Small nucleolar RNA Z266: a 96-nucleotide RNA from Abrus precatorius. The literature on the family includes a 2003 paper in Nucleic Acids Res by Chen et al., "The high diversity of snoRNAs in plants: identification and comparative study of 120 snoRNA genes from Oryza sativa". A search with the family's covariance model found it, with a score of 65 bits. The family's RNA type in Rfam is C/D-box small nucleolar RNA.
RNA sequence: AAAAGGCAAGGUUGAUGAAUCAAUUAGAUGUGUGAUAUUAGAAGUCCUUUCCGAACUCAAAUUUUGAGGCAUAUUGAUAUAUCUGACUUGUUAAUU
Numbered sequence: 001a002a003a004a005g006g007c008a009a010g011g012u013u014g015a016u017g018a019a020u021c022a023a024u025u026a027g028a029u030g031u032g033u034g035a036u037a038u039u040a041g042a043a044g045u046c047c048u049u050u051c052c053g054a055a056c057u058c059a060a061a062u063u064u065u066g067a068g069g070c071a072u073a074u075u076g077a078u079a080u081a082u083c084u085g086a087c088u089u090g091u092u093a094a095u096u
Stems, first nucleotide, its partner, number of pairs: 001096002005092006
Dot-bracket structure: ((..((((((............................................................................))))))..))